[Rfam]
RNA sequence: AUGUAUGUCAGUAUAUGGGGAUGUUUCCCACACAUUCAACGCCAUGUUUACGGAAAAAUAAAAGGGGAGAUAAAAUCCCCCCUUUUUAAUUAAAU
Number, nucleotide and partner (000 for none) at each position: 001a000002u000003g000004u000005a000006u000007g000008u038009c000010a036011g035012u034013a000014u000015a000016u032017g031018g000019g029020g028021a000022u000023g000024u000025u000026u000027c000028c020029c019030a000031c017032a016033c000034a012035u011036u010037c000038a008039a000040c000041g000042c000043c000044a000045u000046g000047u000048u000049u000050a000051c000052g000053g000054a000055a000056a000057a000058a000059u000060a000061a085062a084063a083064g082065g081066g080067g079068a000069g077070a076071u075072a000073a000074a000075a071076u070077c069078c000079c067080c066081c065082c064083u063084u062085u061086u000087u000088a000089a000090u000091u000092a000093a000094a000095u000
A member of the RNA family "sraA" from Citrobacter youngae, 95 nucleotides long. Rfam classes the family as a small RNA. For this family Rfam cites "Novel small RNA-encoding genes in the intergenic regions of Escherichia coli" (Argaman et al., Curr Biol, 2001).